The family of this 73-nucleotide RNA sequence from Eubacterium ventriosum is "tRNA". By type it is a transfer RNA.
RNA sequence: GCUUCCGUAGCUCAGUUGGUAGAGCAGCUCACUCGUAAUGAGCAGGUCACGUGUUCGAGUCACGCCGGGAGCU
Numbered sequence: 001g002c003u004u005c006c007g008u009a010g011c012u013c014a015g016u017u018g019g020u021a022g023a024g025c026a027g028c029u030c031a032c033u034c035g036u037a038a039u040g041a042g043c044a045g046g047u048c049a050c051g052u053g054u055u056c057g058a059g060u061c062a063c064g065c066c067g068g069g070a071g072c073u
Stems, first nucleotide, its partner, number of pairs: 001072007010025004027043005050064004